let-7 microRNA precursor family: an 82-nucleotide sequence from Acipenser ruthenus.
A reference for the family is Rougvie (2001), "Control of developmental timing in animals", Nat Rev Genet.
Taxonomically the source falls in Acipenser (Eukaryota, Bilateria, Teleostomi, Actinopteri).
Rfam's curators write: This family represents the microRNAs (miRNA) let-7 and mir-98. let-7 was identified from a study of developmental timing in C. elegans, and was later shown to be part of a much larger class of non-coding RNAs termed miRNAs.
The family's consensus secondary structure was predicted with RNAalifold.
RNA sequence: GUGGGGUGAGGUAGUAGAUUGUAUAGUUUUUGGGGUCACACCCGAUCUGGGAGAUAACUAUACAGUCCACUGUCUUUCUCAC
Numbered sequence: 001g002u003g004g005g006g007u008g009a010g011g012u013a014g015u016a017g018a019u020u021g022u023a024u025a026g027u028u029u030u031u032g033g034g035g036u037c038a039c040a041c042c043c044g045a046u047c048u049g050g051g052a053g054a055u056a057a058c059u060a061u062a063c064a065g066u067c068c069a070c071u072g073u074c075u076u077u078c079u080c081a082c
Stems, first nucleotide, its partner, number of pairs: 001082006008076008017067011033043003046053001